[Rfam]
Annotation:
The record is a 62-nucleotide sequence from Erwinia sp. OLSSP12, which matches "RybB RNA" in Rfam. The family's consensus secondary structure was predicted with PFOLD. It scores 66 bits against the family's covariance model. Rfam describes the family as follows. This ncRNA was identified in a large scale screen of E. coli. The function of this short RNA is unknown. The exact 5' and 3' ends of this RNA are uncertain.
Nucleotides: 062
Stems, first nucleotide, its partner, number of pairs: 032055010
Number, partner (000 for none) and nucleotide at each position: 001000a002000c003000u004000g005000c006000u007000u008000u009000u010000c011000u012000u013000u014000g015000a016000a017000a018000u019000c020000c021000c022000c023000a024000a025000a026000u027000u028000g029000a030000g031000g032055a033054g034053c035052c036051c037050g038049u039048u040047a041046a042000u043000u044000u045000a046041u047040u048039a049038a050037c051036g052035g053034g054033u055032u056000u057000u058000u059000u060000c061000u062000u